[Rfam]
RNA sequence: CAGGCAUGCUGAGCUCCGCAGCGGCGCCUGGGUUCUGAAAAACCCGACACCGUACUCACAUCGGAGCUUGA
Numbered sequence: 001c002a003g004g005c006a007u008g009c010u011g012a013g014c015u016c017c018g019c020a021g022c023g024g025c026g027c028c029u030g031g032g033u034u035c036u037g038a039a040a041a042a043c044c045c046g047a048c049a050c051c052g053u054a055c056u057c058a059c060a061u062c063g064g065a066g067c068u069u070g071a
Stems, first nucleotide, its partner, number of pairs: 011069008022052003029046004033041001